[Rfam]
RNA: Small nucleolar RNA SNORA30/SNORA37 family
Organism: Nannospalax galili
RNA sequence: ACAGCGCUUUCAUAGGUUCUUCCUCAGUCAGUGGGGCCAGGAUUUGGUAGCUGGCACUUACAGAAAACCCUUGAUUACACCAUUGCCCUCAUAAUGUACCAGUGGCAGUUGUCUCUCAGGGGAGCAGAU
Numbered sequence: 001a002c003a004g005c006g007c008u009u010u011c012a013u014a015g016g017u018u019c020u021u022c023c024u025c026a027g028u029c030a031g032u033g034g035g036g037c038c039a040g041g042a043u044u045u046g047g048u049a050g051c052u053g054g055c056a057c058u059u060a061c062a063g064a065a066a067a068c069c070c071u072u073g074a075u076u077a078c079a080c081c082a083u084u085g086c087c088c089u090c091a092u093a094a095u096g097u098a099c100c101a102g103u104g105g106c107a108g109u110u111g112u113c114u115c116u117c118a119g120g121g122g123a124g125c126a127g128a129u
Base pairs, nucleotide, nucleotide: 003058004057006055007054008053013046014045015044017042018041019040020039022036023035024034025033069122070121071119072118073117074116079112080111083108084107085106086105087104088102089101